[Rfam]
RNA: Eukaryotic large subunit ribosomal RNA, nucleotides 3414 to 3980
RNA sequence: GAAGACCCUGUUGAGCUUGACUCUAGUCCGACUUUGUGAAGAGACAUGGCGGGUGUAGUAAUAAGUGGGAGUUGGGGCAUCAGCUCUAUACGUCAAUGAAAGACCACUCCCAUCAUUGUUUCUUUACUUAUUCAGUGAAGCGGGGCUACACAAUAUACAUAUAACUAUAUUGGCAUUGAAGCACGUAUCAGCGUCUGUGUUUACGCGCCGGCGUUGGUAUCAUCGGUCGCGUCUGGUUAGCUGUAUUGGGCGUUAGCCGCUGCUCUGUGGUGGUUGGCGUCUAUGCAGUGUUAUUAGCCAUGACUGCGACGUGCGACCCGAUCUGAAGACAUUGUCAGGCGGGGAGUUUGACUGGGGCGGUACAUCUGUCAAAUCGUAACGCAGGUGUCCUAAGGUGAGCUCAGCCAGGACAGAAACCUGGCGUAGAGUAAAAGGGCAAAAGCUCACUUGAUUUUGAUUUUCAGUACGAAUACAGACCGUGAAAGCGUGGCCUAUCGAUCCUUUUGAUGAUCCGAUAUUCAGAGUUUGAAGCAAGAGGUACCAGAAAAGUUACCACAGGGAUAACUG
Numbered sequence: 001g002a003a004g005a006c007c008c009u010g011u012u013g014a015g016c017u018u019g020a021c022u023c024u025a026g027u028c029c030g031a032c033u034u035u036g037u038g039a040a041g042a043g044a045c046a047u048g049g050c051g052g053g054u055g056u057a058g059u060a061a062u063a064a065g066u067g068g069g070a071g072u073u074g075g076g077g078c079a080u081c082a083g084c085u086c087u088a089u090a091c092g093u094c095a096a097u098g099a100a101a102g103a104c105c106a107c108u109c110c111c112a113u114c115a116u117u118g119u120u121u122c123u124u125u126a127c128u129u130a131u132u133c134a135g136u137g138a139a140g141c142g143g144g145g146c147u148a149c150a151c152a153a154u155a156u157a158c159a160u161a162u163a164a165c166u167a168u169a170u171u172g173g174c175a176u177u178g179a180a181g182c183a184c185g186u187a188u189c190a191g192c193g194u195c196u197g198u199g200u201u202u203a204c205g206c207g208c209c210g211g212c213g214u215u216g217g218u219a220u221c222a223u224c225g226g227u228c229g230c231g232u233c234u235g236g237u238u239a240g241c242u243g244u245a246u247u248g249g250g251c252g253u254u255a256g257c258c259g260c261u262g263c264u265c266u267g268u269g270g271u272g273g274u275u276g277g278c279g280u281c282u283a284u285g286c287a288g289u290g291u292u293a294u295u296a297g298c299c300a301u302g303a304c305u306g307c308g309a310c311g312u313g314c315g316a317c318c319c320g321a322u323c324u325g326a327a328g329a330c331a332u333u334g335u336c337a338g339g340c341g342g343g344g345a346g347u348u349u350g351a352c353u354g355g356g357g358c359g360g361u362a363c364a365u366c367u368g369u370c371a372a373a374u375c376g377u378a379a380c381g382c383a384g385g386u387g388u389c390c391u392a393a394g395g396u397g398a399g400c401u402c403a404g405c406c407a408g409g410a411c412a413g414a415a416a417c418c419u420g421g422c423g424u425a426g427a428g429u430a431a432a433a434g435g436g437c438a439a440a441a442g443c444u445c446a447c448u449u450g451a452u453u454u455u456g457a458u459u460u461u462c463a464g465u466a467c468g469a470a471u472a473c474a475g476a477c478c479g480u481g482a483a484a485g486c487g488u489g490g491c492c493u494a495u496c497g498a499u500c501c502u503u504u505u506g507a508u509g510a511u512c513c514g515a516u517a518u519u520c521a522g523a524g525u526u527u528g529a530a531g532c533a534a535g536a537g538g539u540a541c542c543a544g545a546a547a548a549g550u551u552a553c554c555a556c557a558g559g560g561a562u563a564a565c566u567g
Base pairs, nucleotide, nucleotide: 007559008558009557010556012555013554014551015550016549017548018547020347021346022345023344027339028338030336031335032334036127037126038125039124040123041122042121043120044119045118046116047115048114049113051111052110053109064108065107066106067105068104071091072090131327132326133325134324135323141320142319143318144317150162152160181314182313183312184311185310350363351361352360353359364386365385366384367383368382369381389490390489395447396446397445398444399443400442401427402426404422405421406420407419408418409417428437429436452476453475454474457471458470459469460468478487479486480485501537502536503535504534505533506532518530519529520528